[Rfam]
RNA sequence: GGGGGUGACUGGCUUCGACUUUGACCUUGCAAGUCAGGUGAAGCGGGCCGAGGACUGCGGACAUAACCUCGUUAAUCCUGUGACCGCAAACAACAAGUGCCAAUUCCAAGCGCACUGUGGUAGCCCAGGACUCCCUGGGCCUCGCUGCCUAAGUAGCGAAACCACUGUCAGCCCGGGAGCGCCUUCGGCCCGGGAUCUGGCAUCGCUAGAAGGCUCAACCGAUCAACCCGGCCACGGGGGUGAUCGGGAAACCAAACAGUGGCUGAGCCCGUCGGUGACUCGCCUGCGAGAUCGCCGGGGCUGAGAAAAGCACAGCAGGCUGCGCCCGGAGAAGCCCUGUCUUGGGGUUGAAGGACGCGGGUUCGAUUCCCGCCACCUCCACUC
Numbered sequence: 001g002g003g004g005g006u007g008a009c010u011g012g013c014u015u016c017g018a019c020u021u022u023g024a025c026c027u028u029g030c031a032a033g034u035c036a037g038g039u040g041a042a043g044c045g046g047g048c049c050g051a052g053g054a055c056u057g058c059g060g061a062c063a064u065a066a067c068c069u070c071g072u073u074a075a076u077c078c079u080g081u082g083a084c085c086g087c088a089a090a091c092a093a094c095a096a097g098u099g100c101c102a103a104u105u106c107c108a109a110g111c112g113c114a115c116u117g118u119g120g121u122a123g124c125c126c127a128g129g130a131c132u133c134c135c136u137g138g139g140c141c142u143c144g145c146u147g148c149c150u151a152a153g154u155a156g157c158g159a160a161a162c163c164a165c166u167g168u169c170a171g172c173c174c175g176g177g178a179g180c181g182c183c184u185u186c187g188g189c190c191c192g193g194g195a196u197c198u199g200g201c202a203u204c205g206c207u208a209g210a211a212g213g214c215u216c217a218a219c220c221g222a223u224c225a226a227c228c229c230g231g232c233c234a235c236g237g238g239g240g241u242g243a244u245c246g247g248g249a250a251a252c253c254a255a256a257c258a259g260u261g262g263c264u265g266a267g268c269c270c271g272u273c274g275g276u277g278a279c280u281c282g283c284c285u286g287c288g289a290g291a292u293c294g295c296c297g298g299g300g301c302u303g304a305g306a307a308a309a310g311c312a313c314a315g316c317a318g319g320c321u322g323c324g325c326c327c328g329g330a331g332a333a334g335c336c337c338u339g340u341c342u343u344g345g346g347g348u349u350g351a352a353g354g355a356c357g358c359g360g361g362u363u364c365g366a367u368u369c370c371c372g373c374c375a376c377c378u379c380c381a382c383u384c
Stems, first nucleotide, its partner, number of pairs: 001380007019353010031343003035339004044328005049071005056088005062082001142159007166202006172194006181214006219247007227239001230264006266302005273297003279290002282320004357373005